[Rfam]
RNA sequence: ACUUGCCUGAGGUGUGCGUUACUCGUUACGUCCCUGAGCCGAUAAUUUGAAACUUUGAGUUGGACAUCUAAAUGCCGGUGAGCAGGCUUACCUUGAGUAAGAAGCCUAAAGGCAAUUAAGUUCGACUCCCUUGAACCUUCUGGUUCAAGGACCACCACAAGUAACGGCACUUCGGGUUCUUU
Numbered sequence: 001a002c003u004u005g006c007c008u009g010a011g012g013u014g015u016g017c018g019u020u021a022c023u024c025g026u027u028a029c030g031u032c033c034c035u036g037a038g039c040c041g042a043u044a045a046u047u048u049g050a051a052a053c054u055u056u057g058a059g060u061u062g063g064a065c066a067u068c069u070a071a072a073u074g075c076c077g078g079u080g081a082g083c084a085g086g087c088u089u090a091c092c093u094u095g096a097g098u099a100a101g102a103a104g105c106c107u108a109a110a111g112g113c114a115a116u117u118a119a120g121u122u123c124g125a126c127u128c129c130c131u132u133g134a135a136c137c138u139u140c141u142g143g144u145u146c147a148a149g150g151a152c153c154a155c156c157a158c159a160a161g162u163a164a165c166g167g168c169a170c171u172u173c174g175g176g177u178u179c180u181u182u
Base pairs, nucleotide, nucleotide: 005177006176007175008174009173010172011171012170013169014168015167017166018165019164030152031151032150033149035147036146037145038144039143040142057128058127059126061124062123063122064121065120070117071116073114074113075112076111082105083104087101088100089099090098091097
RNA: 6S / SsrS RNA
Organism: Actinobacillus pleuropneumoniae